A member of the RNA family "mir-661 microRNA precursor family" from Pongo abelii, 93 nucleotides long.
Gene Ontology terms of the family: miRNA-mediated post-transcriptional gene silencing and RISC complex.
The family's consensus secondary structure was predicted with RNAalifold.
A reference for the family is Yue et al. (2008), "Identification of novel homologous microRNA genes in the rhesus macaque genome", BMC Genomics.

RNA sequence: GGCUGUGCUGUGGGGCAGGCGCUUGCCUGGGUGGUCUGAGCCCUGAUUUCUGGCUGCCUGGAUCUCUGGCCCGUGCAUGACCUUGGGGCGGCU
Numbered sequence: 001g002g003c004u005g006u007g008c009u010g011u012g013g014g015g016c017a018g019g020c021g022c023u024u025g026c027c028u029g030g031g032u033g034g035u036c037u038g039a040g041c042c043c044u045g046a047u048u049u050c051u052g053g054c055u056g057c058c059u060g061g062a063u064c065u066c067u068g069g070c071c072c073g074u075g076c077a078u079g080a081c082c083u084u085g086g087g088g089c090g091g092c093u
Base pairs, nucleotide, nucleotide: 001093002092003091004090007089008088009087011085012084013083014082015081016079017078019076020075021074022073025070026069027068029066039065040064042061043060045058047056